[Rfam]
RNA: Small nucleolar RNA SNORD109A
RNA sequence: GGAUUGAUGAUGACAACAAAUCUCUGUUGAUGUUGAUGGACUCAUGACUAUGCCAAUUGGAGGUCC
Numbered sequence: 001g002g003a004u005u006g007a008u009g010a011u012g013a014c015a016a017c018a019a020a021u022c023u024c025u026g027u028u029g030a031u032g033u034u035g036a037u038g039g040a041c042u043c044a045u046g047a048c049u050a051u052g053c054c055a056a057u058u059g060g061a062g063g064u065c066c
Stems, first nucleotide, its partner, number of pairs: 001066005